Source information: Small nucleolar RNA SNORA24: a 128-nucleotide sequence from Octodon degus.
[Rfam]
RNA sequence: CUCCAUGUGUCUUUGGGACUUGUCAGUUGUGGCAGUCUCCCUUCCUAGCCAUGGAAGAGCAUAUUGUUUAUUGGCAGAGCUGUCACCAAUUAAUUGGUAUCAGGUUCUGACUGGCACAAGUAACAUUC
Numbered sequence: 001c002u003c004c005a006u007g008u009g010u011c012u013u014u015g016g017g018a019c020u021u022g023u024c025a026g027u028u029g030u031g032g033c034a035g036u037c038u039c040c041c042u043u044c045c046u047a048g049c050c051a052u053g054g055a056a057g058a059g060c061a062u063a064u065u066g067u068u069u070a071u072u073g074g075c076a077g078a079g080c081u082g083u084c085a086c087c088a089a090u091u092a093a094u095u096g097g098u099a100u101c102a103g104g105u106u107c108u109g110a111c112u113g114g115c116a117c118a119a120g121u122a123a124c125a126u127u128c
Stems, first nucleotide, its partner, number of pairs: 002055006015041004020035005065125004071119003074115002077112001080103003085098004
From the family's description: ACA24 is a member of the H/ACA class of snoRNA that guide the sites of modification of uridines to pseudouridines.
By type it is an H/ACA-box small nucleolar RNA.
Gene Ontology terms of the family: nucleolus and RNA processing.
It scores 141 bits against the family's covariance model.
The family has 5 seed sequences and 852 matches in Rfam 15.1.